[Rfam]
Shown here is an 84-nucleotide sequence from Microcaecilia unicolor, a member of the family "mir-130 microRNA precursor family". On this family, see Lagos-Quintana et al., Curr Biol 2002: "Identification of tissue-specific microRNAs from mouse". A search with the family's covariance model found it, with a score of 42 bits.
RNA sequence: UGUUGAUUCGGAGUCUGUCUGACGUUGCACCACGUUGUGCGCGCGUACAACGUGGUGCGAUGUCAGACAGACUCCGAAUCAGCA
Numbered sequence: 001u002g003u004u005g006a007u008u009c010g011g012a013g014u015c016u017g018u019c020u021g022a023c024g025u026u027g028c029a030c031c032a033c034g035u036u037g038u039g040c041g042c043g044c045g046u047a048c049a050a051c052g053u054g055g056u057g058c059g060a061u062g063u064c065a066g067a068c069a070g071a072c073u074c075c076g077a078a079u080c081a082g083c084a
Base pairs, nucleotide, nucleotide: 001084002083003082006079007078008077009076010075011074013072014071015070016069017068018067019066020065023062024061025060026059027058028057029056030055031054